[Rfam]
RNA sequence: GUCCUAAGGUAGAAUUUUCUGCCCAUUGAAGCGGUGACGUUUCAAUUGCAUCUUGCUAUAUGCUGGAACAUCUGAGUAUCUGGUGGUACUCGUUCGAAUCUCUGAUUCGUUCAGUAAAAAUCCAACCAGUGCAGACAAUCAGCAGGAAACCAAUUCAUUGGUUGUGACUUGUCACAGCUAACAUUGUUGGGAUCCUCAGAGACUAAACGCAAGACAACUUCUUUCCGUGAAGACUACGACGUAACUGACGUGGUUGGAAUUGAGUUGAAGAUAUAGUCCGAGCUGCAUGGCGACAUGCAG
Numbered sequence: 001g002u003c004c005u006a007a008g009g010u011a012g013a014a015u016u017u018u019c020u021g022c023c024c025a026u027u028g029a030a031g032c033g034g035u036g037a038c039g040u041u042u043c044a045a046u047u048g049c050a051u052c053u054u055g056c057u058a059u060a061u062g063c064u065g066g067a068a069c070a071u072c073u074g075a076g077u078a079u080c081u082g083g084u085g086g087u088a089c090u091c092g093u094u095c096g097a098a099u100c101u102c103u104g105a106u107u108c109g110u111u112c113a114g115u116a117a118a119a120a121u122c123c124a125a126c127c128a129g130u131g132c133a134g135a136c137a138a139u140c141a142g143c144a145g146g147a148a149a150c151c152a153a154u155u156c157a158u159u160g161g162u163u164g165u166g167a168c169u170u171g172u173c174a175c176a177g178c179u180a181a182c183a184u185u186g187u188u189g190g191g192a193u194c195c196u197c198a199g200a201g202a203c204u205a206a207a208c209g210c211a212a213g214a215c216a217a218c219u220u221c222u223u224u225c226c227g228u229g230a231a232g233a234c235u236a237c238g239a240c241g242u243a244a245c246u247g248a249c250g251u252g253g254u255u256g257g258a259a260u261u262g263a264g265u266u267g268a269a270g271a272u273a274u275a276g277u278c279c280g281a282g283c284u285g286c287a288u289g290g291c292g293a294c295a296u297g298c299a300g
Stems, first nucleotide, its partner, number of pairs: 008023006030041003051214004056209001061144006071135004145195002150190004159183002162180001199279001201278005217265004223259005285298005

Group I catalytic intron: a 300-nucleotide RNA sequence from Mariniblastus fucicola. The organism belongs to Mariniblastus, within Bacteria. The match comes from Rfam's covariance-model search (88 bits).